[Rfam]
RNA sequence: UUUUACGUGAUGAACGAAUAACUUUCGCCCCUAACUGAAAUAUAAAUUUCAUGUUGAAUGCGAAUUGAUUGGUCUUACUGAUUUUAUUAAAAACUA
Numbered sequence: 001u002u003u004u005a006c007g008u009g010a011u012g013a014a015c016g017a018a019u020a021a022c023u024u025u026c027g028c029c030c031c032u033a034a035c036u037g038a039a040a041u042a043u044a045a046a047u048u049u050c051a052u053g054u055u056g057a058a059u060g061c062g063a064a065u066u067g068a069u070u071g072g073u074c075u076u077a078c079u080g081a082u083u084u085u086a087u088u089a090a091a092a093a094c095u096a
Stems, first nucleotide, its partner, number of pairs: 001093001002091003